Shown here is a 114-nucleotide RNA sequence from Fictibacillus aquaticus, a member of the family "SAM riboswitch aptamer (S box leader)".

RNA sequence: UUCUUAUCGCGAGAGGUGGAGGGACUGGCCCGAUGAAACCCGGCAACCGCCAGCAAUGUGCUGGAAAGGUGCCAAUUCCUGCAAAGUAAGAUUCUUUACUUUGGGAGAUGAGAA
Number, nucleotide and partner (000 for none) at each position: 001u114002u113003c112004u111005u110006a109007u108008c107009g000010c000011g000012a000013g041014a000015g040016g039017u038018g000019g000020a000021g031022g030023g029024a000025c081026u000027g079028g078029c023030c022031c021032g000033a000034u000035g000036a000037a000038a017039c016040c015041c013042g073043g072044c071045a070046a000047c069048c068049g000050c064051c063052a062053g000054c000055a000056a000057u000058g000059u000060g000061c000062u052063g051064g050065a000066a000067a000068g048069g047070u045071g044072c043073c042074a000075a000076u000077u106078c028079c027080u000081g025082c103083a102084a101085a100086g099087u098088a097089a096090g000091a000092u000093u000094c000095u000096u089097u088098a087099c086100u085101u084102u083103g082104g000105g000106a077107g008108a007109u006110g005111a004112g003113a002114a001